[Rfam]
RNA: mir-193 microRNA precursor family
Organism: Vombatus ursinus
RNA sequence: AUUGAGGACUGGGUCUUUGCGGGCGAGAUGAGGGUGUCAAUUCAACUGGCCUACAAAGUCCCAGUUCUCGGU
Numbered sequence: 001a002u003u004g005a006g007g008a009c010u011g012g013g014u015c016u017u018u019g020c021g022g023g024c025g026a027g028a029u030g031a032g033g034g035u036g037u038c039a040a041u042u043c044a045a046c047u048g049g050c051c052u053a054c055a056a057a058g059u060c061c062c063a064g065u066u067c068u069c070g071g072u
Base pairs, nucleotide, nucleotide: 003070004069005068006067007066008065010063011062012061013060015058016057017056018055019054021052022051023050024049026047027046029044030043